[Rfam]
RNA sequence: UAGAGGGGCAGGACUUGGCUCGCUCCGUGAACAGUUCAGUCAAACCGGUGUGUUCACAGUGGCUAAGUUCCGCUCCUCAC
Number, nucleotide and partner (000 for none) at each position: 001u000002a000003g000004a000005g000006g000007g000008g000009c000010a000011g070012g069013a068014c067015u066016u065017g064018g063019c062020u061021c000022g000023c000024u000025c000026c000027g057028u056029g055030a054031a053032c052033a051034g000035u000036u000037c000038a000039g000040u000041c000042a000043a000044a000045c000046c000047g000048g000049u000050g000051u033052g032053u031054u030055c029056a028057c027058a000059g000060u000061g020062g019063c018064u017065a016066a015067g014068u013069u012070c011071c000072g000073c000074u000075c000076c000077u000078c000079a000080c000